RNA: SAM riboswitch aptamer (S box leader)
Organism: Defluviitalea raffinosedens
RNA sequence: CUCUUAUCAAGAGAGGCGGAGGGACUGGCCCAAUGAAGCCCGGCAACCUGUAUGUAUUACAAGGUGCUAAUUCCAACAGCUCAAGACAGAUGAGCUGAGAGAUGAGAG
Numbered sequence: 001c002u003c004u005u006a007u008c009a010a011g012a013g014a015g016g017c018g019g020a021g022g023g024a025c026u027g028g029c030c031c032a033a034u035g036a037a038g039c040c041c042g043g044c045a046a047c048c049u050g051u052a053u054g055u056a057u058u059a060c061a062a063g064g065u066g067c068u069a070a071u072u073c074c075a076a077c078a079g080c081u082c083a084a085g086a087c088a089g090a091u092g093a094g095c096u097g098a099g100a101g102a103u104g105a106g107a108g
Stems, first nucleotide, its partner, number of pairs: 001108008013041001015040003021031003026075003042068004047064002049061004072100001077097006